[Rfam]
RNA: MIR862 microRNA precursor family
RNA sequence: ACAGUAGUUUUCCAAUAGGUCGAGCAUGUGCUGAAACUGUGUGUACAGAGUUCUCAUAAACACACAGUUUCAGCAUAUGCUGGAUCUACUUGAAGACUACUGU
Numbered sequence: 001a002c003a004g005u006a007g008u009u010u011u012c013c014a015a016u017a018g019g020u021c022g023a024g025c026a027u028g029u030g031c032u033g034a035a036a037c038u039g040u041g042u043g044u045a046c047a048g049a050g051u052u053c054u055c056a057u058a059a060a061c062a063c064a065c066a067g068u069u070u071c072a073g074c075a076u077a078u079g080c081u082g083g084a085u086c087u088a089c090u091u092g093a094a095g096a097c098u099a100c101u102g103u
Base pairs, nucleotide, nucleotide: 001103002102003101004100005099006098007097008096009095010094011093012092016088017087018086019085020084021083023081024080025079026078027077028076029075030074031073032072033071034070035069036068037067038066039065040064041063042062043061044060